Shown here is a 256-nucleotide RNA from Paenibacillus sp. FSL H7-0331, a member of the family "glmS glucosamine-6-phosphate activated ribozyme aptamer". It scores 90 bits against the family's covariance model. The family's consensus secondary structure is taken from published work. Its family is annotated with regulation of gene expression and catalytic activity in the Gene Ontology. Rfam classes the family as a riboswitch.

RNA sequence: UACGUAUCAAUAGCGCCAGAACUUGUGAGGGUGCCAUGGGAAGAUGGCCAGGCAAUUCAAGCGAUAAGAGACAAGCUGUUUAAGUAAUAGUUGUCGGGCUUGGAAUGGAUGAUAUCCCGUAGGCAGCCGCUUGCAAGUUGACGAGGUGAAGGUGUUCGGAAUAUUCGGCGGGGACCUUCCGGUAGCGGCUCUACCGUUAAGUUGGAAUGCAAAGCACAUGGGUGACUGUGUGUACAAGAUUCCAGCAUGACCGAUG
Numbered sequence: 001u002a003c004g005u006a007u008c009a010a011u012a013g014c015g016c017c018a019g020a021a022c023u024u025g026u027g028a029g030g031g032u033g034c035c036a037u038g039g040g041a042a043g044a045u046g047g048c049c050a051g052g053c054a055a056u057u058c059a060a061g062c063g064a065u066a067a068g069a070g071a072c073a074a075g076c077u078g079u080u081u082a083a084g085u086a087a088u089a090g091u092u093g094u095c096g097g098g099c100u101u102g103g104a105a106u107g108g109a110u111g112a113u114a115u116c117c118c119g120u121a122g123g124c125a126g127c128c129g130c131u132u133g134c135a136a137g138u139u140g141a142c143g144a145g146g147u148g149a150a151g152g153u154g155u156u157c158g159g160a161a162u163a164u165u166c167g168g169c170g171g172g173g174a175c176c177u178u179c180c181g182g183u184a185g186c187g188g189c190u191c192u193a194c195c196g197u198u199a200a201g202u203u204g205g206a207a208u209g210c211a212a213a214g215c216a217c218a219u220g221g222g223u224g225a226c227u228g229u230g231u232g233u234a235c236a237a238g239a240u241u242c243c244a245g246c247a248u249g250a251c252c253g254a255u256g
Stems, first nucleotide, its partner, number of pairs: 020139008029130001148179005156168004180196006201246007215232007